[Rfam]
Rfam assigns this 362-nucleotide part of an RNA from Idiomarina loihiensis to the family "Bacterial large subunit ribosomal RNA". Its Rfam clan is "LSU clan".

RNA sequence: UGAGAGAACUCGGGUGAAGGAACUAGGCAAAAUAGUACCGUAACUUCGGGAGAAGGUACGCCACUGGUGGUGAUUGACUUCGCGUCAUGAGCUGCUGGUGGUCGCAGUGACCAGGUGGCUGGGACUGUUUAUUAAAAACACAGCACUGUGCUAACACGAAAGUGGACGUAUACGGUGUGACACCUGCCCGGUGCCGGAAGGUUAAUUGAUGGGGUUAGUUUUCGGACGAAGCUCUUGAUCGAAGCCCCGGUAAACGGCGGCCGUAACUAUAACGGUCCUAAGGUAGCGAAAUUCCUUGUCGGGUAAGUUCCGACCUGCACGAAUGGUGUAACCAUGGCCACGCUGUCUCCACCCGAGACUCA
Numbered sequence: 001u002g003a004g005a006g007a008a009c010u011c012g013g014g015u016g017a018a019g020g021a022a023c024u025a026g027g028c029a030a031a032a033u034a035g036u037a038c039c040g041u042a043a044c045u046u047c048g049g050g051a052g053a054a055g056g057u058a059c060g061c062c063a064c065u066g067g068u069g070g071u072g073a074u075u076g077a078c079u080u081c082g083c084g085u086c087a088u089g090a091g092c093u094g095c096u097g098g099u100g101g102u103c104g105c106a107g108u109g110a111c112c113a114g115g116u117g118g119c120u121g122g123g124a125c126u127g128u129u130u131a132u133u134a135a136a137a138a139c140a141c142a143g144c145a146c147u148g149u150g151c152u153a154a155c156a157c158g159a160a161a162g163u164g165g166a167c168g169u170a171u172a173c174g175g176u177g178u179g180a181c182a183c184c185u186g187c188c189c190g191g192u193g194c195c196g197g198a199a200g201g202u203u204a205a206u207u208g209a210u211g212g213g214g215u216u217a218g219u220u221u222u223c224g225g226a227c228g229a230a231g232c233u234c235u236u237g238a239u240c241g242a243a244g245c246c247c248c249g250g251u252a253a254a255c256g257g258c259g260g261c262c263g264u265a266a267c268u269a270u271a272a273c274g275g276u277c278c279u280a281a282g283g284u285a286g287c288g289a290a291a292u293u294c295c296u297u298g299u300c301g302g303g304u305a306a307g308u309u310c311c312g313a314c315c316u317g318c319a320c321g322a323a324u325g326g327u328g329u330a331a332c333c334a335u336g337g338c339c340a341c342g343c344u345g346u347c348u349c350c351a352c353c354c355g356a357g358a359c360u361c362a
Base pairs, nucleotide, nucleotide: 001362002361003360004359009357010356011355012354013353014352015351016350018348019347020346035059036058037057038056039055044049060102061101062100063099064098065097066096067095068094069093070092071091103107115341116340117339118338119337120336121335122333123332126140127139128138143178144177145176146175147174148173149172150171151168155164156163157162181328182327183326184325186258187257188256191255192254193251194250195249196248197247200246201245202244211235212234213233214232215231218227219226259277260276261275262274263273264272278282288315298314299313300312301311302310303309